[Rfam]
RNA: mir-3913 microRNA precursor family
Organism: Homo sapiens
RNA sequence: UGUUUAUAAUAAACUGAAAUAUUUGGGACUGAUCUUGAUGUCUGCCAAAACCUUGGCAGACAUCAAGAUCAGUCCCAAAUAUUUCAGUUUAUUAUAGACA
Numbered sequence: 001u002g003u004u005u006a007u008a009a010u011a012a013a014c015u016g017a018a019a020u021a022u023u024u025g026g027g028a029c030u031g032a033u034c035u036u037g038a039u040g041u042c043u044g045c046c047a048a049a050a051c052c053u054u055g056g057c058a059g060a061c062a063u064c065a066a067g068a069u070c071a072g073u074c075c076c077a078a079a080u081a082u083u084u085c086a087g088u089u090u091a092u093u094a095u096a097g098a099c100a
Stems, first nucleotide, its partner, number of pairs: 001100048